RNA sequence: GCAUGGACGAAUUCUGUUUUACUCUUUAAAUAGUAAAUGCAGUCAGACACCAUGCGAAAGUAUUGUUUUCACACACUGACUUAACAACAGGAUAAGAAUGCUAACUAUGGCGCUUAUUCUAAUGUCAGAGUGAAUACAGAA
Numbered sequence: 001g002c003a004u005g006g007a008c009g010a011a012u013u014c015u016g017u018u019u020u021a022c023u024c025u026u027u028a029a030a031u032a033g034u035a036a037a038u039g040c041a042g043u044c045a046g047a048c049a050c051c052a053u054g055c056g057a058a059a060g061u062a063u064u065g066u067u068u069u070c071a072c073a074c075a076c077u078g079a080c081u082u083a084a085c086a087a088c089a090g091g092a093u094a095a096g097a098a099u100g101c102u103a104a105c106u107a108u109g110g111c112g113c114u115u116a117u118u119c120u121a122a123u124g125u126c127a128g129a130g131u132g133a134a135u136a137c138a139g140a141a
Base pairs, nucleotide, nucleotide: 001055002054003053004052005051006050014042015041016040017039019037068134069133070132074130076128077127078126079125080124089120090119091118092117093116094115095114096113

Shown here is a 141-nucleotide sequence from Dissostichus mawsoni, a member of the family "Small nucleolar RNA SNORA15". From the family's description: ACA15 is a member of the H/ACA class of snoRNA that guide the sites of modification of uridines to pseudouridines. Rfam links the family to the GO terms RNA processing and nucleolus.